RNA sequence: GUUCGUUGGUGGCGCAAUUCCCUUAAAUGGGUGGUUUCUUCUUGUGCGUGAAUAAAUAACGCAACACCAGAUCGAAACCCGCCAUGAAGCGGGUUUUUUUAU
Numbered sequence: 001g002u003u004c005g006u007u008g009g010u011g012g013c014g015c016a017a018u019u020c021c022c023u024u025a026a027a028u029g030g031g032u033g034g035u036u037u038c039u040u041c042u043u044g045u046g047c048g049u050g051a052a053u054a055a056a057u058a059a060c061g062c063a064a065c066a067c068c069a070g071a072u073c074g075a076a077a078c079c080c081g082c083c084a085u086g087a088a089g090c091g092g093g094u095u096u097u098u099u100u101a102u
Base pairs, nucleotide, nucleotide: 009043011041012040014037016035018033020031021030022029076095077094078093079092080091081090082089
This 102-nucleotide RNA from Arsenophonus nasoniae belongs to the Rfam family "Tryptophan operon leader".
On this family, see Kolter and Yanofsky, Annu Rev Genet 1982: "Attenuation in amino acid biosynthetic operons".
The source organism's lineage runs through Bacteria, Pseudomonadati, Gammaproteobacteria, Morganellaceae and Arsenophonus.
About the family: At least 6 amino acid operons are known to be regulated by attenuation. In each a leader sequence of 150-200 bp is found upstream of the first gene in the operon. This leader sequence can assume two different secondary structures known as the terminator and the anti-terminator structure. In each case the leader also codes for very short peptide sequence that is rich in the end product amino acid of the operon. The terminator structure is recognised as a termination signal for RNA polymerase and the operon is not transcribed. This structure forms when the cell has an excess of the regulatory amino acid and ribosome movement over the leader transcript is not impeded. When there is a deficiency of the charged tRNA of the regulatory amino acid the ribosome translating the leader peptide stalls and the antiterminator structure can form. This allows RNA polymerase to transcribe the operon. In the Rfam alignment the consensus structure is of the terminator structure.
The family's RNA type in Rfam is cis-regulatory leader.